[Rfam]
RNA: Lysine riboswitch aptamer
RNA sequence: ACAUUCAGAAGAGGCGCGUUGACCAGGUACGCAAUAAUAAGGGCACAUUCCCUGAUUAUUAUUGCGAAGGGGGAGCAACGCCGAGUGAGACGCACGAAUGUGAGUGCUGAUUGCGGUCAAGUGGGCUGAAUCCCACUGAUUGUCACCUGAGUUUAGGUGGAGAGCUUCUGGUGGC
Numbered sequence: 001a002c003a004u005u006c007a008g009a010a011g012a013g014g015c016g017c018g019u020u021g022a023c024c025a026g027g028u029a030c031g032c033a034a035u036a037a038u039a040a041g042g043g044c045a046c047a048u049u050c051c052c053u054g055a056u057u058a059u060u061a062u063u064g065c066g067a068a069g070g071g072g073g074a075g076c077a078a079c080g081c082c083g084a085g086u087g088a089g090a091c092g093c094a095c096g097a098a099u100g101u102g103a104g105u106g107c108u109g110a111u112u113g114c115g116g117u118c119a120a121g122u123g124g125g126c127u128g129a130a131u132c133c134c135a136c137u138g139a140u141u142g143u144c145a146c147c148u149g150a151g152u153u154u155a156g157g158u159g160g161a162g163a164g165c166u167u168c169u170g171g172u173g174g175c
Base pairs, nucleotide, nucleotide: 006170007169008168009167010166011165016081017080018079019078020077021076024073030066031065032064033063034062035061036060037059085114086113087112088111092107093106094105095104115141116140117139118138120137121136122135123134124133125132143160144159145158146157147156148155149154